[Rfam]
RNA sequence: UACAUCGUGAGGUGUGGGAGAGAGGAAGCAAUCGCGAAAUCGUGGCUUGACGGACAGAAACUAGGUACAAGGCUUUUUGAACGGGUAAGUUAGCCAAAGGUAACAAAGCCCAAAAGAUAGACGUAAGUUCAAGGUGCAAACCUAGCUAGUAAACAAGACAAAGAUAUAUGA
Numbered sequence: 001u002a003c004a005u006c007g008u009g010a011g012g013u014g015u016g017g018g019a020g021a022g023a024g025g026a027a028g029c030a031a032u033c034g035c036g037a038a039a040u041c042g043u044g045g046c047u048u049g050a051c052g053g054a055c056a057g058a059a060a061c062u063a064g065g066u067a068c069a070a071g072g073c074u075u076u077u078u079g080a081a082c083g084g085g086u087a088a089g090u091u092a093g094c095c096a097a098a099g100g101u102a103a104c105a106a107a108g109c110c111c112a113a114a115a116g117a118u119a120g121a122c123g124u125a126a127g128u129u130c131a132a133g134g135u136g137c138a139a140a141c142c143u144a145g146c147u148a149g150u151a152a153a154c155a156a157g158a159c160a161a162a163g164a165u166a167u168a169u170g171a
Stems, first nucleotide, its partner, number of pairs: 001016006029170002035163001040158002043155002045150003049146001061145006072137002076133007083111004089104004

Annotation: The record is a 171-nucleotide RNA from Erysipelothrix larvae, which matches "Group II catalytic intron D1-D4-3" in Rfam. The source organism's lineage runs through Bacteria, Bacillati, Bacillota, Erysipelotrichaceae and Erysipelothrix. The base pairs follow the family's consensus structure.